Overview: The family of this 61-nucleotide RNA sequence from Loxodonta africana is "U7 small nuclear RNA". The family has 49 seed sequences and 10,439 matches in Rfam 15.1. Rfam's curators put it in the seed alignment.
RNA sequence: UAGUGUUACAGCUCUUUUAGAAUUUGUCUAGUAGGUCUUCUAGUUUUUCUGGAAGACCCUU
Numbered sequence: 001u002a003g004u005g006u007u008a009c010a011g012c013u014c015u016u017u018u019a020g021a022a023u024u025u026g027u028c029u030a031g032u033a034g035g036u037c038u039u040c041u042a043g044u045u046u047u048u049c050u051g052g053a054a055g056a057c058c059c060u061u
Stems, first nucleotide, its partner, number of pairs: 034058010